Notes:
This 45-nucleotide RNA from Kumtagia ephedrae belongs to the Rfam family "Guanidine-II riboswitch aptamer (mini-ykkC)". The match comes from Rfam's covariance-model search (34 bits).
[Rfam]
RNA sequence: UGCAUAGGACGACCUAUGCCGGUGCGCUUCGUCGGGGACGGCCCC
Numbered sequence: 001u002g003c004a005u006a007g008g009a010c011g012a013c014c015u016a017u018g019c020c021g022g023u024g025c026g027c028u029u030c031g032u033c034g035g036g037g038a039c040g041g042c043c044c045c
Base pairs, nucleotide, nucleotide: 002019003018004017005016006015007014008013034045035044036043037042